RNA sequence: UGGUUGGCAUAGUCGUGUGGAUACUUCGUUAACUGAAACAUUUUCACUACCUGAGAAAUAAUGUGGGGUUUCGACCCUGCAGUUUCCACUGACGCAAUCCAACUAUUUU
Numbered sequence: 001u002g003g004u005u006g007g008c009a010u011a012g013u014c015g016u017g018u019g020g021a022u023a024c025u026u027c028g029u030u031a032a033c034u035g036a037a038a039c040a041u042u043u044u045c046a047c048u049a050c051c052u053g054a055g056a057a058a059u060a061a062u063g064u065g066g067g068g069u070u071u072c073g074a075c076c077c078u079g080c081a082g083u084u085u086c087c088a089c090u091g092a093c094g095c096a097a098u099c100c101a102a103c104u105a106u107u108u109u
Stems, first nucleotide, its partner, number of pairs: 002104006012093004017089004026074003
About this RNA
Shown here is a 109-nucleotide RNA from Mytilus coruscus, a member of the family "Vault RNA". The family's consensus secondary structure is taken from published work. From the family's description: This family of RNAs are found as part of the enigmatic vault ribonucleoprotein complex. It scores 43 bits against the family's covariance model. Taxonomically the source falls in Mytilus (Eukaryota, Pteriomorphia, Mytilida, Mytiloidea). The literature on the family includes a 2009 paper in Mol Biol Evol by Stadler et al., "Evolution of Vault RNAs".